[Rfam]
RNA sequence: CGCGGCGGGAGUUUGCAAGUGGGAGUACACACGGGUGUCCUAGAGCACCAAAUUCAACCCCUCUCCUCGGGAAGGUCUGAGGUUCGAGUCCUGAUGGCGACAUCAGCUGAAAACGUGAUGUUUUCUCGUUGCGGGAAACCGCGAGCUGCCAUACCAGCAAGCCUGUUUGACUUGGCCUGCUCCCAUCGCAGCCCCUAUUCGCUCGUUGACGUGCUGGUGCACGGAGAGCAGUGGCCGUGGUGGGUCGCUUGAAACGCGUGGCAGCGGCUGGCUCAUGCAGUUCAAUAUGCAAAGGCCCUUGACUCUGUCGAGGGUGAACCCAAUUCAGACUACUCCUCGCCGCG
Numbered sequence: 001c002g003c004g005g006c007g008g009g010a011g012u013u014u015g016c017a018a019g020u021g022g023g024a025g026u027a028c029a030c031a032c033g034g035g036u037g038u039c040c041u042a043g044a045g046c047a048c049c050a051a052a053u054u055c056a057a058c059c060c061c062u063c064u065c066c067u068c069g070g071g072a073a074g075g076u077c078u079g080a081g082g083u084u085c086g087a088g089u090c091c092u093g094a095u096g097g098c099g100a101c102a103u104c105a106g107c108u109g110a111a112a113a114c115g116u117g118a119u120g121u122u123u124u125c126u127c128g129u130u131g132c133g134g135g136a137a138a139c140c141g142c143g144a145g146c147u148g149c150c151a152u153a154c155c156a157g158c159a160a161g162c163c164u165g166u167u168u169g170a171c172u173u174g175g176c177c178u179g180c181u182c183c184c185a186u187c188g189c190a191g192c193c194c195c196u197a198u199u200c201g202c203u204c205g206u207u208g209a210c211g212u213g214c215u216g217g218u219g220c221a222c223g224g225a226g227a228g229c230a231g232u233g234g235c236c237g238u239g240g241u242g243g244g245u246c247g248c249u250u251g252a253a254a255c256g257c258g259u260g261g262c263a264g265c266g267g268c269u270g271g272c273u274c275a276u277g278c279a280g281u282u283c284a285a286u287a288u289g290c291a292a293a294g295g296c297c298c299u300u301g302a303c304u305c306u307g308u309c310g311a312g313g314g315u316g317a318a319c320c321c322a323a324u325u326c327a328g329a330c331u332a333c334u335c336c337u338c339g340c341c342g343c344g
Base pairs, nucleotide, nucleotide: 001344002343003342004341007338008337009336012293013292014291015290016289017288021067022066023065024064034049035048036047037046038044077328078327079326080325081324087269088268089267090266110124111123112122113121114120129144130143131142132141133140134139145265146264147263148262149261150260151259167247295315296314297313298312299311300310301309302308
The record is a 344-nucleotide RNA sequence from Salpingoeca rosetta, which matches "Nuclear RNase P" in Rfam. A search with the family's covariance model found it, with a score of 102 bits. It is annotated as a ribozyme. NCBI's taxonomy places the organism under Eukaryota, Opisthokonta, Choanoflagellata, Craspedida, Salpingoeca.